Shown here is a 73-nucleotide RNA from Mus musculus, a member of the family "mir-466 microRNA precursor family". Rfam's curators put it in the seed alignment.

RNA sequence: UAUAUGUGUUUAUGUGUGUGUACAUGUACAUAUGUGAAUAUGAUAUCCAUAUACAUACACGCACACAUAAGAC
Numbered sequence: 001u002a003u004a005u006g007u008g009u010u011u012a013u014g015u016g017u018g019u020g021u022a023c024a025u026g027u028a029c030a031u032a033u034g035u036g037a038a039u040a041u042g043a044u045a046u047c048c049a050u051a052u053a054c055a056u057a058c059a060c061g062c063a064c065a066c067a068u069a070a071g072a073c
Base pairs, nucleotide, nucleotide: 008073009072010071012068013067014066015065016064017063018062019061020060021059024056025055026054027053028052031051032050033049034048036046